[Rfam]
Shown here is a 90-nucleotide sequence from Nyctereutes procyonoides, a member of the family "mir-8799 microRNA precursor family".
The family is grouped with related families in Rfam's "mir-8791 microRNA precursor clan".
The base pairs follow the family's consensus structure, which was predicted with RNAalifold.
The source organism's lineage runs through Eukaryota, Bilateria, Deuterostomia, Caniformia and Nyctereutes.
It scores 77 bits against the family's covariance model.

RNA sequence: AGGGGGAGGUCAAAUCUUGGGCUGUGUCCCGGCGCCCUGUGCUCCGGGGCCUGUGCUGUUGGAUUCACACUACCGACUGCACAGCUGCCU
Numbered sequence: 001a002g003g004g005g006g007a008g009g010u011c012a013a014a015u016c017u018u019g020g021g022c023u024g025u026g027u028c029c030c031g032g033c034g035c036c037c038u039g040u041g042c043u044c045c046g047g048g049g050c051c052u053g054u055g056c057u058g059u060u061g062g063a064u065u066c067a068c069a070c071u072a073c074c075g076a077c078u079g080c081a082c083a084g085c086u087g088c089c090u
Stems, first nucleotide, its partner, number of pairs: 001090003005086002009082002011079002017075001019073001021071001023069004027063003030058006039051001041050003